A member of the RNA family "c-di-GMP-I riboswitch aptamer" from a Candidatus Brocadiaceae bacterium, 123 nucleotides long. From the family's description: GEMM was predicted in a large-scale screen for bacterial structured RNA regulatory elements.
[Rfam]
RNA sequence: AUACGAUAAAGGCAAACCCUGAGUGAUCAGGUGGCGCAAAGUAAAAGGGUCUUUUAAAUACACAAGGAUGUAGUUUAAGACGAUACCUUAUCCUGUAGUGAAAAAGAUAGCCUUACUGCCGAA
Numbered sequence: 001a002u003a004c005g006a007u008a009a010a011g012g013c014a015a016a017c018c019c020u021g022a023g024u025g026a027u028c029a030g031g032u033g034g035c036g037c038a039a040a041g042u043a044a045a046a047g048g049g050u051c052u053u054u055u056a057a058a059u060a061c062a063c064a065a066g067g068a069u070g071u072a073g074u075u076u077a078a079g080a081c082g083a084u085a086c087c088u089u090a091u092c093c094u095g096u097a098g099u100g101a102a103a104a105a106g107a108u109a110g111c112c113u114u115a116c117u118g119c120c121g122a123a
Base pairs, nucleotide, nucleotide: 012037013036018031019030020029021028022027040117041116042115043114046113047112048111049108050107051106053104054103055102
Gene Ontology term of the family: cyclic-di-GMP binding. NCBI's taxonomy places the organism under Bacteria, Pseudomonadati, Candidatus Brocadiia, Candidatus Brocadiales, Candidatus Brocadiaceae.